The family of this 59-nucleotide RNA sequence from Corynebacterium appendicis is "L31-Corynebacteriaceae ribosomal protein leader".
The family is grouped with related families in Rfam's "Ribosomal Protein L31 Leader clan".
Taxonomically the source falls in Corynebacterium appendicis (Bacteria, Bacillati, Actinomycetes, Mycobacteriales).
It is annotated as a cis-regulatory leader.
A search with the family's covariance model found it, with a score of 70 bits.
[Rfam]
RNA sequence: ACUCAGGCACGAUCCGGGAAGAGAGCCCGGAACCGACCUGAAGUAUCAAUCCUGAGGGA
Numbered sequence: 001a002c003u004c005a006g007g008c009a010c011g012a013u014c015c016g017g018g019a020a021g022a023g024a025g026c027c028c029g030g031a032a033c034c035g036a037c038c039u040g041a042a043g044u045a046u047c048a049a050u051c052c053u054g055a056g057g058g059a
Stems, first nucleotide, its partner, number of pairs: 001044003004040004013031006